[Rfam]
RNA sequence: GGUGGAGGGUUCCAAAGGGAUCGCAUUGAUCUAAUUCUUAAAGAUGCCUGCACUUACAUGCAGUUCCUGGAAUCAGCUUUGUUUUACAGGUUCAUCGCUUAAUUGGAUCAUGCGAUCCCUUAGGAACUUUCCAU
Numbered sequence: 001g002g003u004g005g006a007g008g009g010u011u012c013c014a015a016a017g018g019g020a021u022c023g024c025a026u027u028g029a030u031c032u033a034a035u036u037c038u039u040a041a042a043g044a045u046g047c048c049u050g051c052a053c054u055u056a057c058a059u060g061c062a063g064u065u066c067c068u069g070g071a072a073u074c075a076g077c078u079u080u081g082u083u084u085u086a087c088a089g090g091u092u093c094a095u096c097g098c099u100u101a102a103u104u105g106g107a108u109c110a111u112g113c114g115a116u117c118c119c120u121u122a123g124g125a126a127c128u129u130u131c132c133a134u
Base pairs, nucleotide, nucleotide: 002134003133004132005131006130008128009127010126011125012124013123015121016120017119018118019117020116021115023113024112025111026110028109029108030107031106032105036102
Background
Rfam assigns this 134-nucleotide RNA sequence from Abrus precatorius to the family "mir-393 microRNA precursor family". On this family, see Kruszka et al., J Plant Physiol 2012: "Role of microRNAs and other sRNAs of plants in their changing environments". Gene Ontology terms of the family: miRNA-mediated post-transcriptional gene silencing and RISC complex. The pairing is the family consensus, mapped onto this sequence. The source organism's lineage runs through Eukaryota, eudicotyledons, fabids, Fabales and Abrus.